[Rfam]
Nucleotides: 084
Stems, first nucleotide, its partner, number of pairs: 015038010058072002062068001
Number, partner (000 for none) and nucleotide at each position: 001000a002000u003000a004000u005000a006000a007000a008000a009000g010000g011000a012000a013000g014000u015038g016037c017036a018035g019034a020033g021032g022031g023030g024029c025000g026000g027000a028000a029024g030023c031022c032021c033020c034019u035018u036017u037016g038015c039000c040000u041000a042000u043000a044000a045000a046000g047000g048000a049000g050000g051000g052000u053000g054000c055000u056000c057000a058072g059071c060000g061000a062068a063000c064000a065000a066000a067000g068062u069000g070000a071059g072058c073000g074000c075000c076000g077000a078000a079000g080000g081000g082000a083000a084000c